[Rfam]
RNA sequence: GUGCCUUAAACUUAUGAGUAAGGAAAAUAUAUGAGCCUUGGUAAUGCUUGGCUUACAUGCUAGCAAAACCUAGCCCGAAUUUUUGAGAGGGUCCAGGUCGUCCCGUAGACCGGUGCUUACUUUUUCGCAUCAGGACUUGGUGAAGCGAUCUACCCU
Number, nucleotide and partner (000 for none) at each position: 001g000002u000003g000004c023005c022006u021007u020008a019009a000010a000011c000012u000013u000014a000015u000016g000017a000018g000019u008020a007021a006022g005023g004024a000025a000026a000027a000028u000029a000030u000031a000032u000033g054034a053035g052036c051037c050038u000039u000040g047041g000042u000043a000044a000045u000046g000047c040048u000049u000050g037051g036052c035053u034054u033055a000056c000057a000058u000059g074060c073061u072062a071063g070064c000065a000066a000067a000068a000069c000070c063071u062072a061073g060074c059075c000076c000077g000078a000079a000080u000081u000082u000083u000084u000085g000086a000087g000088a156089g155090g154091g153092u152093c000094c000095a151096g150097g149098u148099c147100g146101u145102c000103c000104c140105g000106u000107a137108g136109a000110c134111c133112g131113g130114u129115g128116c127117u000118u000119a000120c000121u000122u000123u000124u000125u000126c000127g116128c115129a114130u113131c112132a000133g111134g110135a000136c108137u107138u000139g000140g104141u000142g000143a000144a000145g101146c100147g099148a098149u097150c096151u095152a092153c091154c090155c089156u088
Rfam assigns this 156-nucleotide sequence from Rhynchophorus ferrugineus to the family "U12 minor spliceosomal RNA". Clan: U2 clan. NCBI's taxonomy places the organism under Eukaryota, Arthropoda, Pancrustacea, Altocrustacea, Rhynchophorus. It is annotated as a spliceosomal small nuclear RNA. It scores 104 bits against the family's covariance model.